[Rfam]
RNA sequence: UCCUCCUCCAAAGGCGUGUCUUUAGUUCCUUAUCUCUGGACAUGUAAGAAUUGGAGGUAAAGCAAUGCGGAUUUGGAGAAGUCUUGGACCAGCUUGCUCCCUGAAGGUUCAAGAUCAACCUUCCCACAAAG
Dot-bracket structure: .(((((........(((((((..((...)).......)))))))........)))))...........(((...................(((((.(.....).)))))............))).......